[Rfam]
RNA sequence: AACUUAUCAAGAGCGGCUGAGGGAACAGGCCCGAUGAAGCCCGACAACCUGCGUGUAUGCGCAAGGUGCCAAGUCCUGCGGGAAACCGAAAGAUAAGCG
Numbered sequence: 001a002a003c004u005u006a007u008c009a010a011g012a013g014c015g016g017c018u019g020a021g022g023g024a025a026c027a028g029g030c031c032c033g034a035u036g037a038a039g040c041c042c043g044a045c046a047a048c049c050u051g052c053g054u055g056u057a058u059g060c061g062c063a064a065g066g067u068g069c070c071a072a073g074u075c076c077u078g079c080g081g082g083a084a085a086c087c088g089a090a091a092g093a094u095a096a097g098c099g
Stems, first nucleotide, its partner, number of pairs: 003097006013042001015041003021032003026078004043070001045068002048066002050063004074091001079088003
The family of this 99-nucleotide sequence from Gemmiger formicilis is "SAM riboswitch aptamer (S box leader)". Pairs were carried over by alignment from the consensus structure, which is taken from published work. Lineage of the source: Bacteria > Bacillota > Eubacteriales > Oscillospiraceae > Gemmiger. Rfam links the family to the GO term regulation of gene expression.